A member of the RNA family "Ribosomal protein L20 leader" from Robertmurraya siralis, 136 nucleotides long.
The base pairs follow the family's consensus structure, which was predicted with CMfinder.
A reference for the family is Zengel and Lindahl (1994), "Diverse mechanisms for regulating ribosomal protein synthesis in Escherichia coli", Prog Nucleic Acid Res Mol Biol.

[Rfam]
RNA sequence: AGGGAAAAGAAGAGGCACCCGCUUCUCACCUGAUUGACGCAAAAGCGCAGUUGGCAGGUUUUACGAACAUAAUUAUUUGUUUACGUUUGUUUUCGUAAAGUGUGGGUGUUUCAUGCAUCCACACUUUUUUAUUUGC
Numbered sequence: 001a002g003g004g005a006a007a008a009g010a011a012g013a014g015g016c017a018c019c020c021g022c023u024u025c026u027c028a029c030c031u032g033a034u035u036g037a038c039g040c041a042a043a044a045g046c047g048c049a050g051u052u053g054g055c056a057g058g059u060u061u062u063a064c065g066a067a068c069a070u071a072a073u074u075a076u077u078u079g080u081u082u083a084c085g086u087u088u089g090u091u092u093u094c095g096u097a098a099a100g101u102g103u104g105g106g107u108g109u110u111u112c113a114u115g116c117a118u119c120c121a122c123a124c125u126u127u128u129u130u131a132u133u134u135g136c
Base pairs, nucleotide, nucleotide: 011026012025013024014023015022016021028059029058030057036052037051038050039048040047101123102122103121104120105119106118107117108116109115
The organism belongs to Robertmurraya, within Bacteria.